[Rfam]
RNA sequence: CAGGCUGUGAUGAUUGGCGCAGGGGUACGAACCUCAGCUGAGCCAUGGGAGCUGAAUGUCUGUGCUUUUCCUUCAUCCUGCAUGUGGCAGGUUGAUGGUGAGCACUUUCAUGAGACUGAUGCCUCAGUCUGAGCCUG
Numbered sequence: 001c002a003g004g005c006u007g008u009g010a011u012g013a014u015u016g017g018c019g020c021a022g023g024g025g026u027a028c029g030a031a032c033c034u035c036a037g038c039u040g041a042g043c044c045a046u047g048g049g050a051g052c053u054g055a056a057u058g059u060c061u062g063u064g065c066u067u068u069u070c071c072u073u074c075a076u077c078c079u080g081c082a083u084g085u086g087g088c089a090g091g092u093u094g095a096u097g098g099u100g101a102g103c104a105c106u107u108u109c110a111u112g113a114g115a116c117u118g119a120u121g122c123c124u125c126a127g128u129c130u131g132a133g134c135c136u137g
Stems, first nucleotide, its partner, number of pairs: 001137005